[Rfam]
RNA sequence: AAGAUUAUACUCUCAGGGAUCAUUUCUACAGUUUGUUACUAGAGAGGUCCCUCUGAACGUAUAGAGCUCCUGAAACCAUGAGGAGGAGGCACAGUGUUCUCUCCUGAGCGUGAAGCCGGCUCUUGGUGUUGCUUCUGCAAUCGCCAUUUGCCACUGAUGAUCGUUCUUCUCUUCCUCUGGGAGAGCAAGAGGAGGAGGAUGCUGUCUGAGUGGA
Numbered sequence: 001a002a003g004a005u006u007a008u009a010c011u012c013u014c015a016g017g018g019a020u021c022a023u024u025u026c027u028a029c030a031g032u033u034u035g036u037u038a039c040u041a042g043a044g045a046g047g048u049c050c051c052u053c054u055g056a057a058c059g060u061a062u063a064g065a066g067c068u069c070c071u072g073a074a075a076c077c078a079u080g081a082g083g084a085g086g087a088g089g090c091a092c093a094g095u096g097u098u099c100u101c102u103c104c105u106g107a108g109c110g111u112g113a114a115g116c117c118g119g120c121u122c123u124u125g126g127u128g129u130u131g132c133u134u135c136u137g138c139a140a141u142c143g144c145c146a147u148u149u150g151c152c153a154c155u156g157a158u159g160a161u162c163g164u165u166c167u168u169c170u171c172u173u174c175c176u177c178u179g180g181g182a183g184a185g186c187a188a189g190a191g192g193a194g195g196a197g198g199a200u201g202c203u204g205u206c207u208g209a210g211u212g213g214a
Stems, first nucleotide, its partner, number of pairs: 002040002006035002009032003015027004050064001054061001076213004094202009104192002108164003118152003124146004128141005167188002169185007